[Rfam]
RNA sequence: CGGUCGGCAGUUCACCCAGGCGUCGCCAUCCCUUUUCCGGGAACGCUAAACCUGCUU
Numbered sequence: 001c002g003g004u005c006g007g008c009a010g011u012u013c014a015c016c017c018a019g020g021c022g023u024c025g026c027c028a029u030c031c032c033u034u035u036u037c038c039g040g041g042a043a044c045g046c047u048a049a050a051c052c053u054g055c056u057u
Stems, first nucleotide, its partner, number of pairs: 002016003029042004
Shown here is a 57-nucleotide RNA from Telmatospirillum siberiense, a member of the family "COG3860 RNA". Pairs were carried over by alignment from the consensus structure, which is taken from published work. Lineage of the source: Bacteria > Pseudomonadati > Pseudomonadota > Alphaproteobacteria > Telmatospirillum. It scores 68 bits against the family's covariance model. Rfam classes the family as a cis-regulatory element.